[Rfam]
RNA: c-di-AMP riboswitch aptamer (ydaO/yuaA leader)
Nucleotides: 220
Base pairs, nucleotide, nucleotide: 011205012204013203014202018033019032020031021030022029034200035199036198037197038196039195044094045093095185096184097183103159104158105157106156162179163178164177165176
Number, partner (000 for none) and nucleotide at each position: 001000u002000u003000u004000u005000c006000c007000a008000g009000u010000g011205c012204g013203c014202u015000u016000a017000a018033u019032c020031u021030c022029c023000c024000g025000a026000a027000c028000g029022g030021g031020a032019g033018a034200g035199u036198g037197g038196g039195g040000g041000a042000c043000c044094c045093a046000a047000c048000g049000c050000g051000u052000c053000g054000a055000c056000g057000a058000u059000u060000a061000c062000g063000c064000a065000a066000c067000a068000a069000c070000g071000u072000c073000c074000a075000a076000a077000g078000c079000g080000g081000u082000c083000c084000g085000a086000g087000c088000a089000a090000u091000c092000u093045u094044g095185g096184g097183g098000u099000g100000a101000a102000u103159u104158u105157c106156g107000c108000a109000a110000g111000c112000g113000g114000c115000a116000c117000g118000a119000a120000c121000g122000c123000g124000g125000c126000u127000c128000u129000a130000u131000c132000u133000g134000a135000g136000u137000a138000a139000c140000g141000c142000g143000a144000c145000g146000c147000g148000u149000c150000g151000g152000c153000a154000a155000g156106c157105g158104a159103a160000u161000a162179g163178g164177g165176c166000a167000a168000c169000u170000c171000u172000c173000u174000u175000u176165g177164u178163c179162c180000g181000a182000a183097u184096c185095c186000g187000a188000c189000a190000g191000c192000u193000a194000a195039c196038c197037c198036c199035g200034c201000a202014a203013g204012c205011g206000u207000g208000a209000u210000a211000g212000a213000g214000a215000g216000a217000g218000g219000u220000c